[Rfam]
RNA: Small nucleolar RNA R160
RNA sequence: AGCAAGAUGAGGAGAUCCGUUUGACAGCUGAAUUUAAUGUGGAAUUCCUACUGUUCUAAUGGUCUUCAAAGUUCUCUGAUUGCU
Numbered sequence: 001a002g003c004a005a006g007a008u009g010a011g012g013a014g015a016u017c018c019g020u021u022u023g024a025c026a027g028c029u030g031a032a033u034u035u036a037a038u039g040u041g042g043a044a045u046u047c048c049u050a051c052u053g054u055u056c057u058a059a060u061g062g063u064c065u066u067c068a069a070a071g072u073u074c075u076c077u078g079a080u081u082g083c084u
Base pairs, nucleotide, nucleotide: 001084002083003082004081005080